RNA sequence: GAGAAAUGAGGAAACAUAAUAUUUCUGAGUUUCUGUGACCGCUAAAGAUCCAACUCUGAUCUCACUCGCCUU
Numbered sequence: 001g002a003g004a005a006a007u008g009a010g011g012a013a014a015c016a017u018a019a020u021a022u023u024u025c026u027g028a029g030u031u032u033c034u035g036u037g038a039c040c041g042c043u044a045a046a047g048a049u050c051c052a053a054c055u056c057u058g059a060u061c062u063c064a065c066u067c068g069c070c071u072u
Stems, first nucleotide, its partner, number of pairs: 001063004
A member of the RNA family "Small nucleolar RNA SNORD19" from Callorhinchus milii, 72 nucleotides long.
Clan: SNORD19 clan.
It is annotated as a C/D-box small nucleolar RNA.
It scores 41 bits against the family's covariance model.
On this family, see Huttenhofer et al., EMBO J 2001: "RNomics: an experimental approach that identifies 201 candidates for novel, small, non-messenger RNAs in mouse".